[Rfam]
RNA: mir-7 microRNA precursor family
Organism: Geotrypetes seraphini
RNA sequence: UGGUCCAGCCCUGUCUGGAAGACUAGUGAUUUUGUUGUUCUGACUUUGAGCAUGACAACAAGUCCCAGUCUGCCGUACAGUGCAGGUCC
Numbered sequence: 001u002g003g004u005c006c007a008g009c010c011c012u013g014u015c016u017g018g019a020a021g022a023c024u025a026g027u028g029a030u031u032u033u034g035u036u037g038u039u040c041u042g043a044c045u046u047u048g049a050g051c052a053u054g055a056c057a058a059c060a061a062g063u064c065c066c067a068g069u070c071u072g073c074c075g076u077a078c079a080g081u082g083c084a085g086g087u088c089c
Base pairs, nucleotide, nucleotide: 002088003087004086005085008083009082011080012079013078014077016075017074018073020071021070022069023068024067026066028064029063030062031061032060034059035058036057037056038055039054